[Rfam]
RNA: Mason-Pfizer monkey virus packaging signal
Organism: Nannospalax galili
RNA sequence: UGGCACCCAACGUGGGGCUGGAUACUGGGGGCAUCUCGUGAGGGAGACGACAGAAAAAGGAAGGAGUGCACUCGUUCAAUUUCAAGCAGUUCGGAGACAUGCCACGCGAACCAAAGGUAAGGUGUGCCGUCCGAUCAUGGGGCAAGAAUUGAGCCAGCAUCAGAUUUAUGUCAAGCAAUUGAGAGAGGCUCUAAAGACAUGAGGAGUAAAGGUUAGGACUGUGGAUUUAUUUCAUUGCUUUGAUUUUGUAAAGGACAUUUGUCCCU
Numbered sequence: 001u002g003g004c005a006c007c008c009a010a011c012g013u014g015g016g017g018c019u020g021g022a023u024a025c026u027g028g029g030g031g032c033a034u035c036u037c038g039u040g041a042g043g044g045a046g047a048c049g050a051c052a053g054a055a056a057a058a059g060g061a062a063g064g065a066g067u068g069c070a071c072u073c074g075u076u077c078a079a080u081u082u083c084a085a086g087c088a089g090u091u092c093g094g095a096g097a098c099a100u101g102c103c104a105c106g107c108g109a110a111c112c113a114a115a116g117g118u119a120a121g122g123u124g125u126g127c128c129g130u131c132c133g134a135u136c137a138u139g140g141g142g143c144a145a146g147a148a149u150u151g152a153g154c155c156a157g158c159a160u161c162a163g164a165u166u167u168a169u170g171u172c173a174a175g176c177a178a179u180u181g182a183g184a185g186a187g188g189c190u191c192u193a194a195a196g197a198c199a200u201g202a203g204g205a206g207u208a209a210a211g212g213u214u215a216g217g218a219c220u221g222u223g224g225a226u227u228u229a230u231u232u233c234a235u236u237g238c239u240u241u242g243a244u245u246u247u248g249u250a251a252a253g254g255a256c257a258u259u260u261g262u263c264c265c266u
Base pairs, nucleotide, nucleotide: 006031007030008029012025013024014023036050037049038048039047085118087116089112090110091109092106093105094102125144126143127142130141131140132139133138150193151192153189154188155187200242201241202240203239204238206236210228211227212226213225214224251266253264254263255262256261